[Rfam]
The record is a 114-nucleotide RNA from Ipomoea nil, which matches "U5 spliceosomal RNA" in Rfam. The family has 180 seed sequences and 28,527 matches in Rfam 15.1. By type it is a spliceosomal small nuclear RNA. U5 RNA is a component of both types of known spliceosome. Lineage of the source: Eukaryota > Tracheophyta > Mesangiospermae > eudicotyledons > Ipomoea.

RNA sequence: AGUCAUGUGAUGAACACAUAGCGAACUAUUCUUUUGCCUUUUACUAAAGAAUACCGUGUGUUCAUUACAAUCAAUGGCCUACUCUAAUUUUUUGAGGGUGUUUUUUUUACUCCU
Numbered sequence: 001a002g003u004c005a006u007g008u009g010a011u012g013a014a015c016a017c018a019u020a021g022c023g024a025a026c027u028a029u030u031c032u033u034u035u036g037c038c039u040u041u042u043a044c045u046a047a048a049g050a051a052u053a054c055c056g057u058g059u060g061u062u063c064a065u066u067a068c069a070a071u072c073a074a075u076g077g078c079c080u081a082c083u084c085u086a087a088u089u090u091u092u093u094g095a096g097g098g099u100g101u102u103u104u105u106u107u108u109a110c111u112c113c114u
Base pairs, nucleotide, nucleotide: 003077004076005075006074008067009066010065011064012063013062014061015060016059017058018057027053028052029051030050031049032048033047034046095114097113098112100110101109